[Rfam]
RNA sequence: GACAGUAAACAGAAUAUAACUCGUAUAUUUUUGAGAAUAAGGCUCAAGCGUUUCUACCAGAUAACCGUAAAUUGUCUGACUACGAGUGAAAGUGUACCUAGG
Numbered sequence: 001g002a003c004a005g006u007a008a009a010c011a012g013a014a015u016a017u018a019a020c021u022c023g024u025a026u027a028u029u030u031u032u033g034a035g036a037a038u039a040a041g042g043c044u045c046a047a048g049c050g051u052u053u054c055u056a057c058c059a060g061a062u063a064a065c066c067g068u069a070a071a072u073u074g075u076c077u078g079a080c081u082a083c084g085a086g087u088g089a090a091a092g093u094g095u096a097c098c099u100a101g102g
Stems, first nucleotide, its partner, number of pairs: 019087007030048006058078007

Purine riboswitch aptamer: a 102-nucleotide RNA sequence from Pelosinus fermentans.
The base pairs follow the family's consensus structure, which is taken from published work.
Clan: Purine riboswitches.